[Rfam]
RNA sequence: UAUUAGGUUGGUGCAAAAGUAACUGUGGUUUUGAUCAUUAAAAGUAAUGAUCAAAACCGCAGUUACUUUUGCACCAACCUAUA
Numbered sequence: 001u002a003u004u005a006g007g008u009u010g011g012u013g014c015a016a017a018a019g020u021a022a023c024u025g026u027g028g029u030u031u032u033g034a035u036c037a038u039u040a041a042a043a044g045u046a047a048u049g050a051u052c053a054a055a056a057c058c059g060c061a062g063u064u065a066c067u068u069u070u071g072c073a074c075c076a077a078c079c080u081a082u083a
Base pairs, nucleotide, nucleotide: 001083002082004081005080006079007078008077009076010075011074012073013072014071015070016069017068018067019066020065021064022063023062024061025060026059027058028057029056030055031054032053033052034051035050036049037048038047039046040045
RNA: mir-548 microRNA precursor family
Organism: Cebus imitator